The record is a 102-nucleotide sequence from Enterococcus phoeniculicola, which matches "trpB ncRNA motif" in Rfam.
From the family's description: trpB ncRNA motif was reported as a strong cis regulatory motif candidate, with potential to be a cis regulatory riboswitch type, it have been identified in Firmicutes and Fusobacteria.
By type it is a cis-regulatory element.
Lineage of the source: Bacteria > Bacillati > Enterococcaceae > Enterococcus > Enterococcus phoeniculicola.

RNA sequence: UUCAUGGAUACAGCUUUUAGAGUAUGUUCUAAAAUUUGUAUCUAUGCUAAGAAAAUCUUAUUCGGCCGCAUAGAUGAACUGUCUAUGUGGUCUUUUGUUUUG
Numbered sequence: 001u002u003c004a005u006g007g008a009u010a011c012a013g014c015u016u017u018u019a020g021a022g023u024a025u026g027u028u029c030u031a032a033a034a035u036u037u038g039u040a041u042c043u044a045u046g047c048u049a050a051g052a053a054a055a056u057c058u059u060a061u062u063c064g065g066c067c068g069c070a071u072a073g074a075u076g077a078a079c080u081g082u083c084u085a086u087g088u089g090g091u092c093u094u095u096u097g098u099u100u101u102g
Stems, first nucleotide, its partner, number of pairs: 003046009016033005065091011